[Rfam]
RNA sequence: CGGGCAGUCAGAUAUGUUUGAUAUUCUUGGUUGUGUCCAGUUCAUUCACCCGAGAAUCAAACAUAUUAGUACUGACCG
Number, nucleotide and partner (000 for none) at each position: 001c000002g000003g000004g000005c074006a073007g072008u071009c000010a000011g067012a066013u065014a064015u063016g062017u061018u060019u059020g058021a057022u056023a000024u054025u053026c000027u000028u000029g051030g050031u000032u048033g047034u000035g000036u000037c000038c000039a000040g000041u000042u000043c000044a000045u000046u000047c033048a032049c000050c030051c029052g000053a025054g024055a000056a022057u021058c020059a019060a018061a017062c016063a015064u014065a013066u012067u011068a000069g000070u000071a008072c007073u006074g005075a000076c000077c000078g000
mir-190 microRNA precursor family: a 78-nucleotide sequence from Plutella xylostella. The family's consensus secondary structure was predicted with RNAalifold. Clan: mir-50 clan. The family has 76 seed sequences and 1,667 matches in Rfam 15.1. NCBI's taxonomy places the organism under Eukaryota, Opisthokonta, Amphiesmenoptera, Yponomeutoidea, Plutella. On this family, see Kloosterman et al., Nucleic Acids Res 2006: "Cloning and expression of new microRNAs from zebrafish".